[Rfam]
RNA: MIR398 microRNA precursor family
RNA sequence: UGAAAUCUCAAAGGAGUGUCAUGAGAACACGGAUCCUCUUGUUUCUUUAAGAUUUCCACUGAAACCAUUGAGUAUUGUGUUCUCAGGUCACCCCUUUGAAUCUCCC
Numbered sequence: 001u002g003a004a005a006u007c008u009c010a011a012a013g014g015a016g017u018g019u020c021a022u023g024a025g026a027a028c029a030c031g032g033a034u035c036c037u038c039u040u041g042u043u044u045c046u047u048u049a050a051g052a053u054u055u056c057c058a059c060u061g062a063a064a065c066c067a068u069u070g071a072g073u074a075u076u077g078u079g080u081u082c083u084c085a086g087g088u089c090a091c092c093c094c095u096u097u098g099a100a101u102c103u104c105c106c
Stems, first nucleotide, its partner, number of pairs: 008099001011096004016091003023084010